Annotation
This 91-nucleotide sequence from Eucalyptus grandis belongs to the Rfam family "Small nucleolar RNA snoR109". Rfam classes the family as an H/ACA-box small nucleolar RNA. NCBI's taxonomy places the organism under Eukaryota, Viridiplantae, Magnoliopsida, Myrtaceae, Eucalyptus. The family's consensus secondary structure was predicted with WAR. Rfam 15.1 lists 680 matches to the family in 220 species.
RNA sequence: UGGUUGAAGCCAAAUCCAACGCCUCAGAAGUUAACUUGCUAGUUGUCAUCAAUCUCUGUCGACAAUUCUGCUUAUCGAACUUCUCACAUUU
Numbered sequence: 001u002g003g004u005u006g007a008a009g010c011c012a013a014a015u016c017c018a019a020c021g022c023c024u025c026a027g028a029a030g031u032u033a034a035c036u037u038g039c040u041a042g043u044u045g046u047c048a049u050c051a052a053u054c055u056c057u058g059u060c061g062a063c064a065a066u067u068c069u070g071c072u073u074a075u076c077g078a079a080c081u082u083c084u085c086a087c088a089u090u091u
Stems, first nucleotide, its partner, number of pairs: 026084007038071002042067001044065001045063003